[Rfam]
RNA sequence: UAAUAAUUUAUGCAAAGCAGUAGCAAUACUGUGACGCAAAGCUAUAGGGUCUUUCUAAGAUAGCCAGUUGCACAA
Numbered sequence: 001u002a003a004u005a006a007u008u009u010a011u012g013c014a015a016a017g018c019a020g021u022a023g024c025a026a027u028a029c030u031g032u033g034a035c036g037c038a039a040a041g042c043u044a045u046a047g048g049g050u051c052u053u054u055c056u057a058a059g060a061u062a063g064c065c066a067g068u069u070g071c072a073c074a075a
Stems, first nucleotide, its partner, number of pairs: 012037002017032006040069004047065002049061003
The record is a 75-nucleotide RNA sequence from Clostridium sp. CAG:307, which matches "c-di-GMP-I riboswitch aptamer" in Rfam. A search with the family's covariance model found it, with a score of 53 bits. GEMM was predicted in a large-scale screen for bacterial structured RNA regulatory elements. Genes associated with GEMM are involved in a diverse array of functions, including chemotaxis regulation, signal transduction, secretion and chitin. The base pairs follow the family's consensus structure, which is taken from published work. Rfam 15.1 lists 5,092 matches to the family in 1,772 species.